[Rfam]
RNA sequence: GGUCCGAUGCCACGUCGUUAAUAGCAAAAUAGCUAUGAUUAUCGAUGCUAUGAUUAGACCAAGAUUAAAUUUUUAUUAGUGUUUUGCAUUUUGAUAGGAAUCCGUUGGUUUUAUAUUCAAUGAUUAAACGGAGCCGUUUUGUGCAAUUACAUUU
Number, nucleotide and partner (000 for none) at each position: 001g000002g059003u058004c057005c000006g055007a054008u053009g051010c000011c000012a000013c047014g046015u045016c044017g043018u000019u000020a040021a039022u038023a000024g033025c032026a000027a000028a000029a000030u000031a000032g025033c024034u000035a000036u000037g000038a022039u021040u020041a000042u000043c017044g016045a015046u014047g013048c000049u000050a000051u009052g000053a008054u007055u006056a000057g004058a003059c002060c000061a000062a000063g000064a000065u000066u000067a000068a000069a000070u000071u000072u000073u000074u000075a000076u000077u000078a000079g000080u000081g000082u000083u000084u146085u145086g144087c143088a142089u000090u000091u000092u000093g000094a000095u000096a000097g135098g134099a000100a000101u000102c131103c130104g129105u000106u126107g125108g124109u123110u122111u000112u000113a000114u000115a000116u000117u000118c000119a000120a000121u000122g110123a109124u108125u107126a106127a000128a000129c104130g103131g102132a000133g000134c098135c097136g000137u000138u000139u000140u000141g000142u088143g087144c086145a085146a084147u000148u000149a000150c000151a000152u000153u000154u000